[Rfam]
RNA sequence: CCGUUUCGAUCUGCUGCGGGCAGAUGAAAUGGAUGUGGGUGUCGAUGCCGCCGGCGGUGAGGAUGUGGCCCUCCCCGGCGAUCGCCUCGGUGCCGGGCCCCACCACGAUCGUCACCCCGUCGGUGAUGUCGGGGUUCCCUGCCUUGCCGAUGGCGCAGAUGCGUCCGUCGCGCAGGCCCACAUCGGCCUUGACGAUCCCCCACCAAUCGAGGAUGAGGGCGUUGGUGAUCACCGUGUCCACCGCCCCGUCGGCGCGGGAGGUCUGGGCCUGGCCCAUGCCGUCGCGG
Numbered sequence: 001c002c003g004u005u006u007c008g009a010u011c012u013g014c015u016g017c018g019g020g021c022a023g024a025u026g027a028a029a030u031g032g033a034u035g036u037g038g039g040u041g042u043c044g045a046u047g048c049c050g051c052c053g054g055c056g057g058u059g060a061g062g063a064u065g066u067g068g069c070c071c072u073c074c075c076c077g078g079c080g081a082u083c084g085c086c087u088c089g090g091u092g093c094c095g096g097g098c099c100c101c102a103c104c105a106c107g108a109u110c111g112u113c114a115c116c117c118c119g120u121c122g123g124u125g126a127u128g129u130c131g132g133g134g135u136u137c138c139c140u141g142c143c144u145u146g147c148c149g150a151u152g153g154c155g156c157a158g159a160u161g162c163g164u165c166c167g168u169c170g171c172g173c174a175g176g177c178c179c180a181c182a183u184c185g186g187c188c189u190u191g192a193c194g195a196u197c198c199c200c201c202a203c204c205a206a207u208c209g210a211g212g213a214u215g216a217g218g219g220c221g222u223u224g225g226u227g228a229u230c231a232c233c234g235u236g237u238c239c240a241c242c243g244c245c246c247c248g249u250c251g252g253c254g255c256g257g258g259a260g261g262u263c264u265g266g267g268c269c270u271g272g273c274c275c276a277u278g279c280c281g282u283c284g285c286g287g
Stems, first nucleotide, its partner, number of pairs: 001287003007284003011158004016154002018076003022072002030053003034050002037048001039046002057069002077148002081144001084142002089138002092135003096130003104125002106122004111117001163273001165272003170268002173265004177260001186220005200209001223257001225255001231249001234246001236244001